[Rfam]
RNA: TPP riboswitch aptamer (THI element)
Organism: Actinomycetospora cinnamomea
RNA sequence: GGCGGCGCUCACGGGAGUCCGGGCCACCGGGCUGAGAGGGGACCUGUCGCGGUCCCGACCGUCAGAACCUGAUCCGGGUCAUGCCGGCGCAGGGAGGCUGCGAGUUGAGUAC
Numbered sequence: 001g002g003c004g005g006c007g008c009u010c011a012c013g014g015g016a017g018u019c020c021g022g023g024c025c026a027c028c029g030g031g032c033u034g035a036g037a038g039g040g041g042a043c044c045u046g047u048c049g050c051g052g053u054c055c056c057g058a059c060c061g062u063c064a065g066a067a068c069c070u071g072a073u074c075c076g077g078g079u080c081a082u083g084c085c086g087g088c089g090c091a092g093g094g095a096g097g098c099u100g101c102g103a104g105u106u107g108a109g110u111a112c
Base pairs, nucleotide, nucleotide: 006100007099009097010096011062012061013060014059017032018031019030020029021028039056040055041054042053043052068093069092070091071090074087075086076085077084